The family of this 392-nucleotide RNA sequence from Phenylobacterium hankyongense is "Bacterial RNase P class A". NCBI's taxonomy places the organism under Bacteria, Pseudomonadati, Alphaproteobacteria, Caulobacteraceae, Phenylobacterium.
RNA sequence: CCAGACGGCCGGGCGGUCGCGGGCCUCGCAAGAGGCUCGAGGAAAGUCCGGGCUCCACGACGACAUGGCGGCGGGUAACGCCCGCCGGGGGCGACCCCAGGGAUAGCGCCACAGAAAGCAAACCACCUCCCUCCGGGGAGGUAAGGGUGAAAGGGUGCGGUAAGAGCGCACCGCGUCGGUGGCAACAUCGGCGGCAUGGCAAGCCCCGCCAGGAGCAAGACCGAAUAGGGACCCCGCGCCCUUCGCAAGAAGGGUAGGGCCGUCGCCGGCCUGAGGGCGUCCGGGUAGGUCGCGAGAACCGUCCCGCGAGGGACGGUCCAGAGGAAUGGCCGCCGCGUCCGGGUCUUCGGAUCCGGGCGGCACAGAACCCGGCUUACAGGCCGUCUGGUCCG
Numbered sequence: 001c002c003a004g005a006c007g008g009c010c011g012g013g014c015g016g017u018c019g020c021g022g023g024c025c026u027c028g029c030a031a032g033a034g035g036c037u038c039g040a041g042g043a044a045a046g047u048c049c050g051g052g053c054u055c056c057a058c059g060a061c062g063a064c065a066u067g068g069c070g071g072c073g074g075g076u077a078a079c080g081c082c083c084g085c086c087g088g089g090g091g092c093g094a095c096c097c098c099a100g101g102g103a104u105a106g107c108g109c110c111a112c113a114g115a116a117a118g119c120a121a122a123c124c125a126c127c128u129c130c131c132u133c134c135g136g137g138g139a140g141g142u143a144a145g146g147g148u149g150a151a152a153g154g155g156u157g158c159g160g161u162a163a164g165a166g167c168g169c170a171c172c173g174c175g176u177c178g179g180u181g182g183c184a185a186c187a188u189c190g191g192c193g194g195c196a197u198g199g200c201a202a203g204c205c206c207c208g209c210c211a212g213g214a215g216c217a218a219g220a221c222c223g224a225a226u227a228g229g230g231a232c233c234c235c236g237c238g239c240c241c242u243u244c245g246c247a248a249g250a251a252g253g254g255u256a257g258g259g260c261c262g263u264c265g266c267c268g269g270c271c272u273g274a275g276g277g278c279g280u281c282c283g284g285g286u287a288g289g290u291c292g293c294g295a296g297a298a299c300c301g302u303c304c305c306g307c308g309a310g311g312g313a314c315g316g317u318c319c320a321g322a323g324g325a326a327u328g329g330c331c332g333c334c335g336c337g338u339c340c341g342g343g344u345c346u347u348c349g350g351a352u353c354c355g356g357g358c359g360g361c362a363c364a365g366a367a368c369c370c371g372g373c374u375u376a377c378a379g380g381c382c383g384u385c386u387g388g389u390c391c392g
Stems, first nucleotide, its partner, number of pairs: 001388010011377001012334007020039008044375003048372005053215004066211005071085005086100001087098004101206002106204002108200003123146002125142007154172006173195001174193008219291004229282004234277001257272005298317008
Pairs were carried over by alignment from the consensus structure, which is taken from published work.